[Rfam]
RNA sequence: CAUCUAAUCGGUGAUGACGUUCGCCGUAACCAUUACAGAACGUAAUUAAUGACGUCUACAGUUGC
Numbered sequence: 001c002a003u004c005u006a007a008u009c010g011g012u013g014a015u016g017a018c019g020u021u022c023g024c025c026g027u028a029a030c031c032a033u034u035a036c037a038g039a040a041c042g043u044a045a046u047u048a049a050u051g052a053c054g055u056c057u058a059c060a061g062u063u064g065c
Stems, first nucleotide, its partner, number of pairs: 010025004016056006032046004
RNA: Fluoride riboswitch aptamer (crcB RNA motif)
Organism: Schleiferilactobacillus perolens